Background
Shown here is a 120-nucleotide RNA from Coffea canephora, a member of the family "U5 spliceosomal RNA". The family has 180 seed sequences and 28,527 matches in Rfam 15.1. Lineage of the source: Eukaryota > lamiids > Ixoroideae > Gardenieae complex > Coffea. Rfam links the family to the GO terms spliceosomal tri-snRNP complex assembly and U5 snRNP.
RNA sequence: AGCCACGCAGUGAGCACAUAGCGAACUAUUCUUUCGCCUUUUACUAAAGAAUACCGUGUGCUCGCUGCACUUAGUGGCAUACCCCAAUUUUUGUAGGAAGGCUCCCUCUUUUGGAAGCCU
Numbered sequence: 001a002g003c004c005a006c007g008c009a010g011u012g013a014g015c016a017c018a019u020a021g022c023g024a025a026c027u028a029u030u031c032u033u034u035c036g037c038c039u040u041u042u043a044c045u046a047a048a049g050a051a052u053a054c055c056g057u058g059u060g061c062u063c064g065c066u067g068c069a070c071u072u073a074g075u076g077g078c079a080u081a082c083c084c085c086a087a088u089u090u091u092u093g094u095a096g097g098a099a100g101g102c103u104c105c106c107u108c109u110u111u112u113g114g115a116a117g118c119c120u
Stems, first nucleotide, its partner, number of pairs: 003077004008067011027053008095120001100119004105114001